[Rfam]
RNA sequence: CAGGUUGUACAGGAGCGGUUAGCCACUUCCUUUUGGUAAAAGGAGGUGGUAAUGUGUCAACAUUUGAGGCAAUGUACUUAAUGAUUGCAUUUGCAACACUUGUUGUGCUCAUGAUAAAGCAGAAAUAACCGCCUCCUGCUAAGUUUGCGGUUAUUUCCUGAAUAACUCCAAAUCGGGCUAACCGUUUCCGGUUAGACAACCUGUGGGCUGACGUGUUAGAGCACGUCAG
Number, nucleotide and partner (000 for none) at each position: 001c000002a179003g178004g000005u176006u175007g000008u000009a000010c138011a137012g136013g135014a134015g133016c000017g130018g129019u128020u127021a000022g000023c049024c048025a047026c000027u045028u044029c043030c042031u041032u000033u000034u000035g000036g000037u000038a000039a000040a000041a031042g030043g029044a028045g027046g000047u025048g024049g023050u000051a000052a000053u000054g000055u000056g108057u107058c105059a104060a103061c102062a101063u000064u000065u000066g000067a000068g000069g000070c083071a082072a000073u000074g000075u000076a000077c000078u000079u000080a000081a000082u071083g070084a000085u000086u000087g000088c000089a000090u000091u000092u000093g099094c000095a000096a000097c000098a000099c093100u000101u062102g061103u060104u059105g058106u000107g057108c056109u000110c000111a000112u000113g000114a000115u000116a000117a000118a000119g000120c000121a000122g000123a000124a000125a000126u000127a020128a019129c018130c017131g000132c000133c015134u014135c013136c012137u011138g010139c000140u000141a000142a000143g000144u000145u165146u164147g163148c000149g000150g000151u000152u000153a000154u000155u000156u000157c000158c000159u000160g000161a000162a000163u147164a146165a145166c000167u000168c000169c000170a000171a000172a000173u000174c000175g006176g005177g000178c003179u002180a000181a192182c191183c190184g189185u000186u000187u000188c000189c184190g183191g182192u181193u000194a000195g000196a000197c000198a000199a000200c000201c000202u000203g000204u000205g000206g000207g000208c229209u228210g227211a226212c225213g224214u223215g222216u221217u000218a000219g000220a000221g216222c215223a214224c213225g212226u211227c210228a209229g208
RNA: BsrG
Organism: Sporomusa sphaeroides